RNA sequence: GCGGAGCGCGCGGGAGAGAUCGUGGAGAGGCCCUGGCCGAACCGCGGCGCCGAAGGAGCAACCGCCCCGGAAACUCUCAGGCAAGGCGAACCGCGCGCGCCGA
Numbered sequence: 001g002c003g004g005a006g007c008g009c010g011c012g013g014g015a016g017a018g019a020u021c022g023u024g025g026a027g028a029g030g031c032c033c034u035g036g037c038c039g040a041a042c043c044g045c046g047g048c049g050c051c052g053a054a055g056g057a058g059c060a061a062c063c064g065c066c067c068c069g070g071a072a073a074c075u076c077u078c079a080g081g082c083a084a085g086g087c088g089a090a091c092c093g094c095g096c097g098c099g100c101c102g103a
Base pairs, nucleotide, nucleotide: 006098007097008096009095010094011093012092013091020047021046022045023044024043025042049082050081051080052078053077056076057075058074062070063069